[Rfam]
The record is a 111-nucleotide RNA sequence from Streptomyces sp. M41(2017), which matches "SAM (S-adenosyl methionine) riboswitch aptamer" in Rfam. Lineage of the source: Bacteria > Actinomycetota > Actinomycetes > Streptomycetaceae > Streptomyces. A search with the family's covariance model found it, with a score of 93 bits. Its Rfam clan is "SAM clan". Pairs were carried over by alignment from the consensus structure, which is taken from published work.
RNA sequence: GGCAUUGAGCGUCAGCGUCAAGCCCUGGCUCGCUGACCGGCAACCCUCCUCCGCGGUGGGGUGCUCCAGGUGAAAGCCCGGCGUGGUCGCCCGACCCCGCAAGCGCGAACC
Number, nucleotide and partner (000 for none) at each position: 001g078002g077003c076004a000005u000006u000007g000008a000009g038010c000011g037012u036013c035014a034015g033016c032017g000018u000019c000020a000021a030022g029023c000024c000025c000026u000027g000028g000029c022030u021031c000032g016033c015034u014035g013036a012037c011038c009039g065040g064041c063042a000043a000044c061045c060046c059047u000048c056049c055050u000051c000052c000053g000054c000055g049056g048057u000058g000059g046060g045061g044062u000063g041064c040065u039066c000067c000068a000069g000070g000071u000072g000073a000074a000075a000076g003077c002078c001079c000080g000081g100082c099083g098084u000085g096086g095087u094088c093089g000090c000091c000092c000093g088094a087095c086096c085097c000098c083099g082100c081101a000102a000103g000104c000105g000106c000107g000108a000109a000110c000111c000